About this RNA: Rfam assigns this 114-nucleotide sequence from Aquarana catesbeiana to the family "Potassium channel RNA editing signal". This family represents a group of sequences related to the human potassium channel Kv1.1 hairpin element which directs the efficient modification of an adenosine to inosine by an adenosine deaminase acting on RNA (ADAR). The ADAR modification causes an isoleucine/valine recoding event which lies in the ion-conducting pore of the potassium channel. It is thought that this editing event targets the process of fast inactivation and allows a more rapid recovery from inactivation at negative potentials. Taxonomically the source falls in Aquarana (Eukaryota, Teleostomi, Tetrapoda, Anura). A search with the family's covariance model found it, with a score of 101 bits.
Nucleotides: 114
Base pairs, nucleotide, nucleotide: 001114002113005110007108008107009106010105011104013102014101015100018097020095021094037077038076040074049063050062051061
Number, partner (000 for none) and nucleotide at each position: 001114g002113u003000u004000g005110g006000u007108u008107a009106u010105g011104g012000a013102g014101a015100u016000a017000u018097g019000u020095g021094c022000c023000c024000u025000a026000u027000u028000a029000c030000a031000u032000u033000g034000g035000g036000a037077g038076g039000u040074a041000a042000a043000a044000u045000g046000g047000u048000a049063g050062g051061c052000a053000c054000a055000c056000u057000u058000u059000g060000u061051g062050c063049u064000a065000u066000c067000g068000c069000u070000g071000g072000c073000g074040u075000c076038u077037u078000g079000a080000c081000u082000a083000u084000u085000g086000c087000u088000c089000u090000c091000c092000c093000a094021g095020u096000u097018c098000c099000a100015g101014u102013c103000a104011u105010c106009g107008u108007a109000u110005c111000a112000a113002a114001c